[Rfam]
RNA sequence: CGUAUCAUUGUGCCAGGCCGGUGACGAGCCUGGCGAUAAGUCCGAAAGAGGGAUGAUAUGAC
Number, nucleotide and partner (000 for none) at each position: 001c060002g059003u058004a057005u056006c055007a054008u053009u052010g000011u035012g034013c033014c032015a031016g030017g029018c028019c000020g000021g025022u000023g000024a000025c021026g000027a000028g018029c017030c016031u015032g014033g013034c012035g011036a000037u000038a000039a000040g000041u000042c051043c050044g000045a000046a000047a000048g000049a000050g043051g042052g009053a008054u007055g006056a005057u004058a003059u002060g001061a000062c000